[Rfam]
RNA sequence: CUGAUGAAGCUACACUCUAGCCUUUGCACCUGGGUCUGCGGAUACGGUGUUCUGGCCGUGGCGACGGCGACGUCGCCACCAGGGUACAGGAAGAAAUGACUGUGCCUCCCGUAUCUGGAAAGGUGUAUAUGGCCUCACAAC
Numbered sequence: 001c002u003g004a005u006g007a008a009g010c011u012a013c014a015c016u017c018u019a020g021c022c023u024u025u026g027c028a029c030c031u032g033g034g035u036c037u038g039c040g041g042a043u044a045c046g047g048u049g050u051u052c053u054g055g056c057c058g059u060g061g062c063g064a065c066g067g068c069g070a071c072g073u074c075g076c077c078a079c080c081a082g083g084g085u086a087c088a089g090g091a092a093g094a095a096a097u098g099a100c101u102g103u104g105c106c107u108c109c110c111g112u113a114u115c116u117g118g119a120a121a122g123g124u125g126u127a128u129a130u131g132g133c134c135u136c137a138c139a140a141c
Stems, first nucleotide, its partner, number of pairs: 003135001011127005017122001020056003026050005034043003058079008082107008092097001108118002
RNA: Molybdenum/Tungsten riboswitch aptamer (Moco RNA motif)